[Rfam]
Group II catalytic intron D1-D4-1: a 91-nucleotide RNA from Acidihalobacter aeolianus. Group II introns are found in rRNA, tRNA and mRNA of organelles in fungi, plants and protists, and also in mRNA in bacteria. Pairs were carried over by alignment from the consensus structure. The source organism's lineage runs through Bacteria, Pseudomonadati, Gammaproteobacteria, Ectothiorhodospiraceae and Acidihalobacter. Rfam 15.1 lists 2,508 matches to the family in 1,144 species. For this family Rfam cites "The ins and outs of group II introns" (Bonen and Vogel, Trends Genet, 2001). It scores 70 bits against the family's covariance model.
RNA sequence: CGCGUCUUGCGGUAACGCAGGACGUGACCGGGCAGAAGUCAGCAGAGGCCAUAGUAGGCGGCCGGGGACGGAAUCCCCGCCGGUGAAGGGC
Numbered sequence: 001c002g003c004g005u006c007u008u009g010c011g012g013u014a015a016c017g018c019a020g021g022a023c024g025u026g027a028c029c030g031g032g033c034a035g036a037a038g039u040c041a042g043c044a045g046a047g048g049c050c051a052u053a054g055u056a057g058g059c060g061g062c063c064g065g066g067g068a069c070g071g072a073a074u075c076c077c078c079g080c081c082g083g084u085g086a087a088g089g090g091c
Base pairs, nucleotide, nucleotide: 001026002025004023005022006021007020008019009018010017011016039046040045048091049090050089057084059082060081061080062079